RNA: Clostridiales-1 RNA
Organism: Clostridium sp. CAG:81
RNA sequence: UGAAAGUGCUGUUAAGCGGAUGACCAGACUGCGUGCUUGCGUGCAAGGAUGGGCAGAUAUUUGACAGCCAAGCCGAUAUAAGUAAGCAGGGUGAUAGCCCGGAUUACGAAUUUUGGCGGCAAUUGUGGGAGUUACUUAGUCACGGAACAAUUGCCUUUCA
Numbered sequence: 001u002g003a004a005a006g007u008g009c010u011g012u013u014a015a016g017c018g019g020a021u022g023a024c025c026a027g028a029c030u031g032c033g034u035g036c037u038u039g040c041g042u043g044c045a046a047g048g049a050u051g052g053g054c055a056g057a058u059a060u061u062u063g064a065c066a067g068c069c070a071a072g073c074c075g076a077u078a079u080a081a082g083u084a085a086g087c088a089g090g091g092u093g094a095u096a097g098c099c100c101g102g103a104u105u106a107c108g109a110a111u112u113u114u115g116g117c118g119g120c121a122a123u124u125g126u127g128g129g130a131g132u133u134a135c136u137u138a139g140u141c142a143c144g145g146a147a148c149a150a151u152u153g154c155c156u157u158u159c160a
Stems, first nucleotide, its partner, number of pairs: 001160006008068004015061002018058001021055002024052003029047002031044005072117005078111002082107004089100004120153007131143002134140001
Dot-bracket structure: ((((((.((((...((.(..((.(((..(((((((....))))).))..))).))..).))...))))...(((((.((..((((...((((....))))...))))..)).)))))..(((((((....((.(.....).))...))))))).))))))